[Rfam]
Small nucleolar RNA SNORD73: a 69-nucleotide RNA sequence from Gymnodraco acuticeps. The family's consensus secondary structure was predicted with PFOLD. The match comes from Rfam's covariance-model search (50 bits). The literature on the family includes a 1998 paper in Gene by Rebane et al., "A novel snoRNA (U73) is encoded within the introns of the human and mouse ribosomal protein S3a genes". Its family is annotated with nucleolus and RNA processing in the Gene Ontology. The source organism's lineage runs through Eukaryota, Actinopteri, Eupercaria, Notothenioidei and Gymnodraco.
Nucleotides: 069
Stems, first nucleotide, its partner, number of pairs: 001069004
Number, partner (000 for none) and nucleotide at each position: 001069a002068a003067u004066g005000a006000u007000g008000a009000u010000g011000a012000a013000a014000a015000a016000c017000u018000g019000u020000u021000u022000c023000g024000g025000u026000c027000c028000c029000a030000g031000a032000u033000g034000a035000u036000c037000u038000c039000c040000u041000g042000a043000u044000u045000a046000u047000a048000c049000c050000c051000a052000u053000u054000g055000a056000g057000a058000u059000c060000a061000c062000c063000u064000a065000a066004u067003g068002u069001u